mir-2807 microRNA precursor family: a 79-nucleotide RNA from Bombyx mori. The literature on the family includes a 2010 paper in Funct Integr Genomics by Cai et al., "Novel microRNAs in silkworm (Bombyx mori)". The family's consensus secondary structure was predicted with RNAalifold. A search with the family's covariance model found it, with a score of 59 bits.
RNA sequence: UCAAAUUUUUGUAUGGAGUUGGAACGUUUGCCUGCGUUUGUCGCUAGAUGGCGCUGUUCCAACUCCAUACAAAGAGUUU
Numbered sequence: 001u002c003a004a005a006u007u008u009u010u011g012u013a014u015g016g017a018g019u020u021g022g023a024a025c026g027u028u029u030g031c032c033u034g035c036g037u038u039u040g041u042c043g044c045u046a047g048a049u050g051g052c053g054c055u056g057u058u059c060c061a062a063c064u065c066c067a068u069a070c071a072a073a074g075a076g077u078u079u
Base pairs, nucleotide, nucleotide: 008073009072010071011070012069013068015066017064018063019062020061021060022059023058024057025056026055031050033048036044037043